The record is a 95-nucleotide RNA from Camellia sinensis, which matches "MIR535 microRNA precursor family" in Rfam. A search with the family's covariance model found it, with a score of 84 bits. The family's consensus secondary structure was predicted with RNAalifold. For this family Rfam cites "Conservation and divergence of microRNAs and their functions in Euphorbiaceous plants" (Zeng et al., Nucleic Acids Res, 2010). NCBI's taxonomy places the organism under Eukaryota, Tracheophyta, Euphyllophyta, Magnoliopsida, Camellia.
RNA sequence: GCAAAUCUAUGACAACGAGAGAGAGCACGCUUGUAAACAGUCAUGCUCGAUGCAUGAAUGCAGACUAGCGUGCUCUCUCUCGUUGUCAGGCAAUG
Numbered sequence: 001g002c003a004a005a006u007c008u009a010u011g012a013c014a015a016c017g018a019g020a021g022a023g024a025g026c027a028c029g030c031u032u033g034u035a036a037a038c039a040g041u042c043a044u045g046c047u048c049g050a051u052g053c054a055u056g057a058a059u060g061c062a063g064a065c066u067a068g069c070g071u072g073c074u075c076u077c078u079c080u081c082g083u084u085g086u087c088a089g090g091c092a093a094u095g
Base pairs, nucleotide, nucleotide: 010088011087012086013085014084016082017081020078021077023075025073026072027071028070029069030068031067033065034064